[Rfam]
RNA sequence: CUCUGGAGAGCGCGUUUAAGUACGCCACCAAAGGGGAAGGCCCUAUUGAAGAUAGGGUUAAACUCUCAGGUAAAAGGACAGAG
Numbered sequence: 001c002u003c004u005g006g007a008g009a010g011c012g013c014g015u016u017u018a019a020g021u022a023c024g025c026c027a028c029c030a031a032a033g034g035g036g037a038a039g040g041c042c043c044u045a046u047u048g049a050a051g052a053u054a055g056g057g058u059u060a061a062a063c064u065c066u067c068a069g070g071u072a073a074a075a076g077g078a079c080a081g082a083g
Base pairs, nucleotide, nucleotide: 001083002082003081004080005079012025013024014023015022027071028070029069031066034065035064036063040058041057042056043055044054045053046052047051
Dot-bracket structure: (((((......((((......)))).(((.(..(((...((((((((...))))))))....))))..))).......)))))